[Rfam]
Nucleotides: 067
Stems, first nucleotide, its partner, number of pairs: 002041004011035003017028004047067009
Number, partner (000 for none) and nucleotide at each position: 001000u002041g003040a004039g005038c006000g007000u008000u009000a010000c011035g012034a013033u014000g015000a016000u017028g018027g019026a020025a021000g022000a023000u024000a025020u026019u027018c028017c029000a030000a031000g032000u033013g034012u035011c036000u037000a038005g039004c040003u041002c042000a043000g044000u045000u046000u047067c048066u049065c050064c051063c052062g053061g054060g055059u056000u057000u058000a059055a060054c061053c062052c063051g064050g065049g066048a067047g
The record is a 67-nucleotide sequence from Alkalibacterium sp. AK22, which matches "L17 ribosomal protein downstream element" in Rfam. The organism belongs to Alkalibacterium, within Bacteria. It is annotated as a cis-regulatory element.